This 75-nucleotide RNA from Haemonchus placei belongs to the Rfam family "mir-5928 microRNA precursor family". The family's consensus secondary structure was predicted with RNAalifold. The source organism's lineage runs through Eukaryota, Eumetazoa, Protostomia, Rhabditida and Haemonchus. A search with the family's covariance model found it, with a score of 63 bits.

RNA sequence: GACCCAAAUUUGAAAUAGAGUGGAUUAGAAGGAUCAUCUGACCCUACUAAACUACUCUACUUUGUGUUUGUGCCC
Numbered sequence: 001g002a003c004c005c006a007a008a009u010u011u012g013a014a015a016u017a018g019a020g021u022g023g024a025u026u027a028g029a030a031g032g033a034u035c036a037u038c039u040g041a042c043c044c045u046a047c048u049a050a051a052c053u054a055c056u057c058u059a060c061u062u063u064g065u066g067u068u069u070g071u072g073c074c075c
Stems, first nucleotide, its partner, number of pairs: 001074001003072001005070005011064004016059008025050004030045001032043001034041002